[Rfam]
RNA sequence: AGGGGUUUAUGGGAGUCAUUGUAGAAGCGUGCUCGUCGCGACCCCUGCCAGCCCUUUUCAGGGCUGCAGUUCUACA
Numbered sequence: 001a002g003g004g005g006u007u008u009a010u011g012g013g014a015g016u017c018a019u020u021g022u023a024g025a026a027g028c029g030u031g032c033u034c035g036u037c038g039c040g041a042c043c044c045c046u047g048c049c050a051g052c053c054c055u056u057u058u059c060a061g062g063g064c065u066g067c068a069g070u071u072c073u074a075c076a
Stems, first nucleotide, its partner, number of pairs: 012045002015042003020076007027039003049066007
Dot-bracket structure: ...........[[.[[[..((((((((((.......)))]]].]]...(((((((....)))))))...)))))))
Mammalian CPEB3 ribozyme: a 76-nucleotide sequence from Parnassius apollo. Its family is annotated with RNA nuclease activity in the Gene Ontology. The match comes from Rfam's covariance-model search (54 bits). The base pairs follow the family's consensus structure, which is taken from published work.